MIR1120/MIR1122 microRNA precursor family: an 87-nucleotide RNA sequence from Triticum turgidum.
A search with the family's covariance model found it, with a score of 87 bits.
RNA sequence: GUACUCCCUCCGUCCCAUAAUGUAAGAUGCUUUUUGACACUACACUAGUGUCAAAAAAUAUCCUACAUUAUGGGACAGAGGGAGUAC
Number, nucleotide and partner (000 for none) at each position: 001g000002u000003a085004c084005u083006c000007c081008c080009u079010c078011c000012g000013u075014c074015c073016c072017a071018u000019a069020a068021u067022g066023u065024a064025a000026g062027a061028u060029g059030c000031u057032u056033u055034u054035u053036g052037a051038c050039a049040c048041u047042a000043c000044a000045c000046u000047a041048g040049u039050g038051u037052c036053a035054a034055a033056a032057a031058a000059u029060a028061u027062c026063c000064u024065a023066c022067a021068u020069u019070a000071u017072g016073g015074g014075a013076c000077a000078g010079a009080g008081g007082g000083a005084g004085u003086a000087c000
For this family Rfam cites "Cloning and characterization of microRNAs from wheat (Triticum aestivum L.)" (Yao et al., Genome Biol, 2007).